Rfam assigns this 365-nucleotide RNA from Chitinophaga silvatica to the family "Bacterial RNase P class A". Taxonomically the source falls in Chitinophaga (Bacteria, Pseudomonadati, Chitinophagia, Chitinophagales). Rfam classes the family as a ribozyme. It scores 250 bits against the family's covariance model.

[Rfam]
RNA sequence: ACUACAAACCGUGCUACCGCUUCAUUGAUAAGAUGACGAGGAAAGUCCGGACAGCGUAGAGCAACGCACCACCUAACUGGUGGGUCCUGGCAGCCGCCAGGAACAGCUAGUGCCGCAGAAAAUAACCGCCUCUGCUCUGUAGAGGUAAGGGUGAAAAUGUGGGGUAAGAGCCCACGGCAUUGACAGGUAACUGUUAGAGCGGGUAAACCUUGCGUGCUGAAAUGCCAUGUAUACGGUCGUUUGAGGGCUGCUCGUCCGAGACCGAGGGUAGGCAGAUACAGACAACGUGUGAGCGUUGUCGCAGAUAAAUGGUAGCAUCUCUACUUCGUAGAGAACAGAAUCCGGCUUACAGGUUUGUAGUUUUU
Numbered sequence: 001a002c003u004a005c006a007a008a009c010c011g012u013g014c015u016a017c018c019g020c021u022u023c024a025u026u027g028a029u030a031a032g033a034u035g036a037c038g039a040g041g042a043a044a045g046u047c048c049g050g051a052c053a054g055c056g057u058a059g060a061g062c063a064a065c066g067c068a069c070c071a072c073c074u075a076a077c078u079g080g081u082g083g084g085u086c087c088u089g090g091c092a093g094c095c096g097c098c099a100g101g102a103a104c105a106g107c108u109a110g111u112g113c114c115g116c117a118g119a120a121a122a123u124a125a126c127c128g129c130c131u132c133u134g135c136u137c138u139g140u141a142g143a144g145g146u147a148a149g150g151g152u153g154a155a156a157a158u159g160u161g162g163g164g165u166a167a168g169a170g171c172c173c174a175c176g177g178c179a180u181u182g183a184c185a186g187g188u189a190a191c192u193g194u195u196a197g198a199g200c201g202g203g204u205a206a207a208c209c210u211u212g213c214g215u216g217c218u219g220a221a222a223u224g225c226c227a228u229g230u231a232u233a234c235g236g237u238c239g240u241u242u243g244a245g246g247g248c249u250g251c252u253c254g255u256c257c258g259a260g261a262c263c264g265a266g267g268g269u270a271g272g273c274a275g276a277u278a279c280a281g282a283c284a285a286c287g288u289g290u291g292a293g294c295g296u297u298g299u300c301g302c303a304g305a306u307a308a309a310u311g312g313u314a315g316c317a318u319c320u321c322u323a324c325u326u327c328g329u330a331g332a333g334a335a336c337a338g339a340a341u342c343c344g345g346c347u348u349a350c351a352g353g354u355u356u357g358u359a360g361u362u363u364u365u
Stems, first nucleotide, its partner, number of pairs: 001361010011350001012317007020038001022036005043348003047345005052219004059253004064215005069083005084104001085102007105210002110208002112204003126150002128146008158176006180197007223274004234264005245257004281300008

Its family is annotated with ribonuclease P activity, dimeric ribonuclease P complex and tRNA processing in the Gene Ontology.